A member of the RNA family "Fluoride riboswitch aptamer (crcB RNA motif)" from Sediminibacterium ginsengisoli, 64 nucleotides long. The base pairs follow the family's consensus structure, which is taken from published work.

[Rfam]
RNA sequence: AGUAAUACAGGAAAUGGUGUCUUCCUGACCCAACCGCUACAGAGCUGAUGACGCCUGCAAAUUG
Number, nucleotide and partner (000 for none) at each position: 001a000002g000003u000004a000005a000006u000007a000008c000009a000010g025011g024012a023013a022014a000015u000016g055017g054018u053019g052020u051021c050022u013023u012024c011025c010026u000027g000028a000029c000030c000031c000032a000033a000034c000035c000036g045037c044038u043039a000040c000041a000042g000043a038044g037045c036046u000047g000048a000049u000050g021051a020052c019053g018054c017055c016056u000057g000058c000059a000060a000061a000062u000063u000064g000